[Rfam]
RNA sequence: GGCCAGGGGAAUUCCUGGUAGAGUGAUUUGAGACUACAGGACUGAAUCACAUUGCCAGGGAUUUCCAAUGGCU
Numbered sequence: 001g002g003c004c005a006g007g008g009g010a011a012u013u014c015c016u017g018g019u020a021g022a023g024u025g026a027u028u029u030g031a032g033a034c035u036a037c038a039g040g041a042c043u044g045a046a047u048c049a050c051a052u053u054g055c056c057a058g059g060g061a062u063u064u065c066c067a068a069u070g071g072c073u
Stems, first nucleotide, its partner, number of pairs: 001073001003071003009066001011062011023050007
About this RNA: mir-23 microRNA precursor family: a 73-nucleotide RNA from Cottoperca gobio. Rfam links the family to the GO terms gene silencing by miRNA and RISC complex. The source organism's lineage runs through Eukaryota, Metazoa, Neoteleostei, Perciformes and Cottoperca. On this family, see Chen et al., Genes Dev 2005: "The developmental miRNA profiles of zebrafish as determined by small RNA cloning".